[Rfam]
RNA sequence: CACGACAAAGGCACACUCGCCGCGAGGCGAGGUCGCAAAGCCACGGGGCUCCUGCCUCCACAGGAGCACGCCGGGCUGCCGAAC
Numbered sequence: 001c002a003c004g005a006c007a008a009a010g011g012c013a014c015a016c017u018c019g020c021c022g023c024g025a026g027g028c029g030a031g032g033u034c035g036c037a038a039a040g041c042c043a044c045g046g047g048g049c050u051c052c053u054g055c056c057u058c059c060a061c062a063g064g065a066g067c068a069c070g071c072c073g074g075g076c077u078g079c080c081g082a083a084c
Stems, first nucleotide, its partner, number of pairs: 003081002011036002016031006034070001039077004044073003048067006
The record is an 84-nucleotide RNA sequence from Solirubrobacter pauli, which matches "c-di-GMP-I-GGC riboswitch aptamer" in Rfam. The source organism's lineage runs through Bacteria, Bacillati, Thermoleophilia, Solirubrobacterales and Solirubrobacter.